[Rfam]
RNA: U12 minor spliceosomal RNA
Organism: Nezara viridula
RNA sequence: GUGCCUUAAACUAAUGAGUAAGGAAAAUAUAGAGCCUUGGUGACGCUUGGCUCAAGCACACCAUUAUAUUGCUAAAUAAUUUUUGAAGAGGUACAGGUCGUCCCUUUGAGCCGCUUGUCUACUUUACAGGUGGUUCGGGUGAAGCGAUCUACCUC
Numbered sequence: 001g002u003g004c005c006u007u008a009a010a011c012u013a014a015u016g017a018g019u020a021a022g023g024a025a026a027a028u029a030u031a032g033a034g035c036c037u038u039g040g041u042g043a044c045g046c047u048u049g050g051c052u053c054a055a056g057c058a059c060a061c062c063a064u065u066a067u068a069u070u071g072c073u074a075a076a077u078a079a080u081u082u083u084u085g086a087a088g089a090g091g092u093a094c095a096g097g098u099c100g101u102c103c104c105u106u107u108g109a110g111c112c113g114c115u116u117g118u119c120u121a122c123u124u125u126a127c128a129g130g131u132g133g134u135u136c137g138g139g140u141g142a143a144g145c146g147a148u149c150u151a152c153c154u155c
Stems, first nucleotide, its partner, number of pairs: 004023005032053005039046001055073004088155005095150007104139002108136005114130005